[Rfam]
RNA sequence: AGUCACAAGUUUGAGGCCAAAGUAGAAGUGCUCACAACAUGGCCUUGACAGAUUCUAACAAAUCUGCAAAUUCUUCU
Numbered sequence: 001a002g003u004c005a006c007a008a009g010u011u012u013g014a015g016g017c018c019a020a021a022g023u024a025g026a027a028g029u030g031c032u033c034a035c036a037a038c039a040u041g042g043c044c045u046u047g048a049c050a051g052a053u054u055c056u057a058a059c060a061a062a063u064c065u066g067c068a069a070a071u072u073c074u075u076c077u
Stems, first nucleotide, its partner, number of pairs: 014045005021077002024074004028040003049066006